The record is a 115-nucleotide RNA sequence from Chrysochloris asiatica, which matches "U5 spliceosomal RNA" in Rfam. Rfam's curators write: U5 RNA is a component of both types of known spliceosome. The precise function of this molecule is unknown, though it is known that the 5' loop is required for splice site selection and p220 binding, and that both the 3' stem-loop and the Sm site are important for Sm protein binding and cap methylation.
RNA sequence: GUAGUAGAGUUCUCUUCAGAUCGUAGAAAUCUUAUACCUUUUACUGAAGAUUUUGUGGGAAGGAUCGAUUCUGAGUCAUAACCUGAUUUUUUUGAGGCCUUAUUUUUGCAGGGUU
Numbered sequence: 001g002u003a004g005u006a007g008a009g010u011u012c013u014c015u016u017c018a019g020a021u022c023g024u025a026g027a028a029a030u031c032u033u034a035u036a037c038c039u040u041u042u043a044c045u046g047a048a049g050a051u052u053u054u055g056u057g058g059g060a061a062g063g064a065u066c067g068a069u070u071c072u073g074a075g076u077c078a079u080a081a082c083c084u085g086a087u088u089u090u091u092u093u094g095a096g097g098c099c100u101u102a103u104u105u106u107u108g109c110a111g112g113g114u115u
Base pairs, nucleotide, nucleotide: 003076005074009065010064011063012062013061015059016058017057018056027053028052029051030050031049032048033047095115097114098113099112100111101110
A reference for the family is Zwieb (1997), "The uRNA database", Nucleic Acids Res.